A member of the RNA family "ZMP/ZTP riboswitch aptamer (pfl RNA motif)" from Fontibacillus panacisegetis, 83 nucleotides long. The source organism's lineage runs through Bacteria, Bacillota, Bacilli, Caryophanales and Fontibacillus. Pairs were carried over by alignment from the consensus structure, which is taken from published work.

[Rfam]
RNA sequence: AAGAUCCGAUGUAACUGGCGACAAGAGUGGAUCAAACCACGAUGGAGCAUCGGAACAUACGGCCGGUCGCCUGGGCAAAGAGC
Numbered sequence: 001a002a003g004a005u006c007c008g009a010u011g012u013a014a015c016u017g018g019c020g021a022c023a024a025g026a027g028u029g030g031a032u033c034a035a036a037c038c039a040c041g042a043u044g045g046a047g048c049a050u051c052g053g054a055a056c057a058u059a060c061g062g063c064c065g066g067u068c069g070c071c072u073g074g075g076c077a078a079a080g081a082g083c
Stems, first nucleotide, its partner, number of pairs: 003056001005054008015044001017071005027040004062076003